Shown here is a 149-nucleotide RNA from Myotis lucifugus, a member of the family "Small nucleolar RNA U109". Pairs were carried over by alignment from the consensus structure, which was predicted with WAR. On this family, see Reddy et al., Biochem Biophys Res Commun 1981: "Pseudouridine residues in the 5'-terminus of uridine-rich nuclear RNA I (U1 RNA)". The family has 26 seed sequences and 1,405 matches in Rfam 15.1. The family's RNA type in Rfam is H/ACA-box small nucleolar RNA. NCBI's taxonomy places the organism under Eukaryota, Craniata, Euteleostomi, Theria, Myotis.
[Rfam]
RNA sequence: GGGCAGGUAGAAGAUCUACUCAUUAUGCAGCCACUUAAGAAAAGCCCCUUAAGAGCAGGAAUACCUCCAUAACAUGCUACAUAAAAGGAGUUCUCAGGGCUGCCAACCUUACAGUAGAGGUUGAGUAGUAGUAUAUUUCUCCUACAUAG
Numbered sequence: 001g002g003g004c005a006g007g008u009a010g011a012a013g014a015u016c017u018a019c020u021c022a023u024u025a026u027g028c029a030g031c032c033a034c035u036u037a038a039g040a041a042a043a044g045c046c047c048c049u050u051a052a053g054a055g056c057a058g059g060a061a062u063a064c065c066u067c068c069a070u071a072a073c074a075u076g077c078u079a080c081a082u083a084a085a086a087g088g089a090g091u092u093c094u095c096a097g098g099g100c101u102g103c104c105a106a107c108c109u110u111a112c113a114g115u116a117g118a119g120g121u122u123g124a125g126u127a128g129u130a131g132u133a134u135a136u137u138u139c140u141c142c143u144a145c146a147u148a149g
Base pairs, nucleotide, nucleotide: 003077004076005075007073008072015059016058017057019055020054021053087142088141089140090139099129100128103125104123105122106121107120108119109118110117